[Rfam]
RNA sequence: AAACGCCACUGUAAAUAUGCGCGGUGGGGCAUCAUCGAAAGAUGGAAGCAUAUUUGGAGAAAUAUCAUGUCAUUGUCUGCAGAACAGAAAGCAAAAAUCGUACAGGAAAAUCAACGUGCAGCG
Numbered sequence: 001a002a003a004c005g006c007c008a009c010u011g012u013a014a015a016u017a018u019g020c021g022c023g024g025u026g027g028g029g030c031a032u033c034a035u036c037g038a039a040a041g042a043u044g045g046a047a048g049c050a051u052a053u054u055u056g057g058a059g060a061a062a063u064a065u066c067a068u069g070u071c072a073u074u075g076u077c078u079g080c081a082g083a084a085c086a087g088a089a090a091g092c093a094a095a096a097a098u099c100g101u102a103c104a105g106g107a108a109a110a111u112c113a114a115c116g117u118g119c120a121g122c123g
Stems, first nucleotide, its partner, number of pairs: 007026006055075003059071001
The record is a 123-nucleotide RNA sequence from gamma proteobacterium HdN1, which matches "Ribosomal S15 leader" in Rfam. The source organism's lineage runs through Bacteria, Pseudomonadati, Pseudomonadota and Gammaproteobacteria. The family's consensus secondary structure is taken from published work. Rfam links the family to the GO term regulation of translation, ncRNA-mediated. Rfam's curators write: The E. coli Ribosomal S15 gene 5' UTR can form two alternative structures. One that is a series of three hairpins, The other includes a pseudoknot. This structure causes translational regulation of the S15 protein. The alignment of this family contains only the final two hairpins which are conserved in other species, and also includes the complete region that forms the alternate structures. A reference for the family is Benard et al. (1996), "Pseudoknot and translational control in the expression of the S15 ribosomal protein", Biochimie.